[Rfam]
RNA: Bacterial RNase P class A
Organism: Caldimonas brevitalea
RNA sequence: GAAGCAAGCCAGACCGCCGCUGGCGCAAGAGCCGAAAGGCUGCGCUGGAGGAAGGUCCGGACUGCACAGGGCAGCGUAGCAGGUAACACCUGUCCGCCGUGAGGCGAGGAUCAGAGCAACAGAGACGAGUCGGUCCUGGGGGCAACUCCAGAGGCCGGGUGAAACGGGCAAUCUCUACGCGCAGCAACACCAAAUAGGCACACGUCGAUCCGGCCCGGGGAGUGUGCGGGUAGGUGGCAUCGAGCCGCAUCCGCGAGGGGCGGCCCAGAGGAAUGGCGGUCACGUCGGGGCGACCCGAUGCACAGAAUCCGGCCUAUCGGUUUGCUUCACUC
Numbered sequence: 001g002a003a004g005c006a007a008g009c010c011a012g013a014c015c016g017c018c019g020c021u022g023g024c025g026c027a028a029g030a031g032c033c034g035a036a037a038g039g040c041u042g043c044g045c046u047g048g049a050g051g052a053a054g055g056u057c058c059g060g061a062c063u064g065c066a067c068a069g070g071g072c073a074g075c076g077u078a079g080c081a082g083g084u085a086a087c088a089c090c091u092g093u094c095c096g097c098c099g100u101g102a103g104g105c106g107a108g109g110a111u112c113a114g115a116g117c118a119a120c121a122g123a124g125a126c127g128a129g130u131c132g133g134u135c136c137u138g139g140g141g142g143c144a145a146c147u148c149c150a151g152a153g154g155c156c157g158g159g160u161g162a163a164a165c166g167g168g169c170a171a172u173c174u175c176u177a178c179g180c181g182c183a184g185c186a187a188c189a190c191c192a193a194a195u196a197g198g199c200a201c202a203c204g205u206c207g208a209u210c211c212g213g214c215c216c217g218g219g220g221a222g223u224g225u226g227c228g229g230g231u232a233g234g235u236g237g238c239a240u241c242g243a244g245c246c247g248c249a250u251c252c253g254c255g256a257g258g259g260g261c262g263g264c265c266c267a268g269a270g271g272a273a274u275g276g277c278g279g280u281c282a283c284g285u286c287g288g289g290g291c292g293a294c295c296c297g298a299u300g301c302a303c304a305g306a307a308u309c310c311g312g313c314c315u316a317u318c319g320g321u322u323u324g325c326u327u328c329a330c331u332c
Stems, first nucleotide, its partner, number of pairs: 001328010011317001012281007020048008053315003057312005062184004069216004074180005079093005094108001095106004109175002114173002116169002131158001134153001136151006188236004198227006209219003244264005250259003